Notes
This 82-nucleotide RNA sequence from Anaeromicrobium sediminis belongs to the Rfam family "Clostridiales-2 RNA". Lineage of the source: Bacteria > Bacillota > Clostridia > Peptostreptococcales > Anaeromicrobium. Pairs were carried over by alignment from the consensus structure, which is taken from published work. It is annotated as a small RNA.
RNA sequence: AAAAAAGAAGGGGUGUGGGGGAACAUCCCCUGUCCGCUUCAAAGGAGGUACUCAGAUUGCAGUAGCAAUCGUCGAAGGAAAC
Numbered sequence: 001a002a003a004a005a006a007g008a009a010g011g012g013g014u015g016u017g018g019g020g021g022a023a024c025a026u027c028c029c030c031u032g033u034c035c036g037c038u039u040c041a042a043a044g045g046a047g048g049u050a051c052u053c054a055g056a057u058u059g060c061a062g063u064a065g066c067a068a069u070c071g072u073c074g075a076a077g078g079a080a081a082c
Stems, first nucleotide, its partner, number of pairs: 015033008055070005